[Rfam]
RNA sequence: CCCUGUAUUCGAAAGUGAUCGUGGGCUGCCCGUGCCCUGGUCAUUGAUAGUGCAGGGAGAGAAAACGCUGAAAGCAUUUCCCCGUGUUUGGAGGGUCCACUUUGUCCCUUUACAAACUCUGGAGCUUUCCCACA
Numbered sequence: 001c002c003c004u005g006u007a008u009u010c011g012a013a014a015g016u017g018a019u020c021g022u023g024g025g026c027u028g029c030c031c032g033u034g035c036c037c038u039g040g041u042c043a044u045u046g047a048u049a050g051u052g053c054a055g056g057g058a059g060a061g062a063a064a065a066c067g068c069u070g071a072a073a074g075c076a077u078u079u080c081c082c083c084g085u086g087u088u089u090g091g092a093g094g095g096u097c098c099a100c101u102u103u104g105u106c107c108c109u110u111u112a113c114a115a116a117c118u119c120u121g122g123a124g125c126u127u128u129c130c131c132a133c134a
Base pairs, nucleotide, nucleotide: 001057002056003055004054005053006052007051008050009049014045015044016043017042018041019040020039021038023037024036025035026034067131070129071128072127073126074125075124086117087116088115089114090113091111092110093109094108095107
This 134-nucleotide RNA sequence from Carlito syrichta belongs to the Rfam family "Small nucleolar RNA SNORA71". It scores 145 bits against the family's covariance model. About the family: The members of this family belong to the H/ACA class of snoRNAs which bind a number of proteins (including dyskerin, Gar1p and Nop10p) to form snoRNP complexes. This class of snoRNAs are thought to guide the sites of modification of uridines to pseudouridines by forming direct base pairing interactions with substrate RNAs. This family includes U71 (SNORA71), ACA39 (SNORA39) and ACA60 (SNORA60). It is annotated as an H/ACA-box small nucleolar RNA. For this family Rfam cites "The family of box ACA small nucleolar RNAs is defined by an evolutionarily conserved secondary structure and ubiquitous sequence elements essential for RNA accumulation" (Ganot et al., Genes Dev, 1997).